[Rfam]
RNA sequence: AAAACCUAAAACAAUAGAAGCCCUGCCUCUCUUCCAUCUAUACGGCUCCUAGGCCGCGCCUGUGAGAAUCAGGUUCUUUCAUAAUAA
Numbered sequence: 001a002a003a004a005c006c007u008a009a010a011a012c013a014a015u016a017g018a019a020g021c022c023c024u025g026c027c028u029c030u031c032u033u034c035c036a037u038c039u040a041u042a043c044g045g046c047u048c049c050u051a052g053g054c055c056g057c058g059c060c061u062g063u064g065a066g067a068a069u070c071a072g073g074u075u076c077u078u079u080c081a082u083a084a085u086a087a
Stems, first nucleotide, its partner, number of pairs: 035066001039062002041058001043056005
Dot-bracket structure: ..................................(...(((.(((((....))))).)..))...).....................
RNA: BsrC
Organism: Bacillus benzoevorans